RNA sequence: UGAAAUGAUUGUAGAACGCAAUCAUGUUAAUCAAAAGAAAGUUCGAUCGG
Numbered sequence: 001u002g003a004a005a006u007g008a009u010u011g012u013a014g015a016a017c018g019c020a021a022u023c024a025u026g027u028u029a030a031u032c033a034a035a036a037g038a039a040a041g042u043u044c045g046a047u048c049g050g
Stems, first nucleotide, its partner, number of pairs: 006024006014044004
Shown here is a 50-nucleotide sequence, a member of the family "6A RNA".
Rfam classes the family as a small RNA.
It is one of the family's seed sequences.